Source information
The record is a 114-nucleotide RNA sequence from Geodermatophilus ruber, which matches "SAM (S-adenosyl methionine) riboswitch aptamer" in Rfam.
[Rfam]
RNA sequence: GGUCAAGAGCGCCAGCGACAAGCCCCGGCUCGCUGGCCGGCAACCCUUCCUCCGCGAUGGGGUGCCCCGGGUGACGACCUGGCGGGGGCCGGCCGGUCCUCGCAAGCGCGGACC
Numbered sequence: 001g002g003u004c005a006a007g008a009g010c011g012c013c014a015g016c017g018a019c020a021a022g023c024c025c026c027g028g029c030u031c032g033c034u035g036g037c038c039g040g041c042a043a044c045c046c047u048u049c050c051u052c053c054g055c056g057a058u059g060g061g062g063u064g065c066c067c068c069g070g071g072u073g074a075c076g077a078c079c080u081g082g083c084g085g086g087g088g089c090c091g092g093c094c095g096g097u098c099c100u101c102g103c104a105a106g107c108g109c110g111g112a113c114c
Stems, first nucleotide, its partner, number of pairs: 001079004009038001011037006021030002039066003044062003048057002082103009